[Rfam]
RNA: Bacterial antisense RNA HPnc0260
RNA sequence: UGUCUUAAAGAUAAAAUACCCCAAUCACGGAUUUUUCUUGCUCUAUGAUCUCAUUUACAAGCGCAUUCUUUAAUCAUAUGGGGCAAUUCUUGAGGCAUUUUGUUGCAAUCUAGGGGUUAAACAUGUGUCCGUAGUGAAAUGGUGGUCCCGACUGGACUUGAACCAGCGACCCCUACCA
Numbered sequence: 001u002g003u004c005u006u007a008a009a010g011a012u013a014a015a016a017u018a019c020c021c022c023a024a025u026c027a028c029g030g031a032u033u034u035u036u037c038u039u040g041c042u043c044u045a046u047g048a049u050c051u052c053a054u055u056u057a058c059a060a061g062c063g064c065a066u067u068c069u070u071u072a073a074u075c076a077u078a079u080g081g082g083g084c085a086a087u088u089c090u091u092g093a094g095g096c097a098u099u100u101u102g103u104u105g106c107a108a109u110c111u112a113g114g115g116g117u118u119a120a121a122c123a124u125g126u127g128u129c130c131g132u133a134g135u136g137a138a139a140u141g142g143u144g145g146u147c148c149c150g151a152c153u154g155g156a157c158u159u160g161a162a163c164c165a166g167c168g169a170c171c172c173c174u175a176c177c178a
Stems, first nucleotide, its partner, number of pairs: 024049003030043002033040001140175003144171002149168002152166004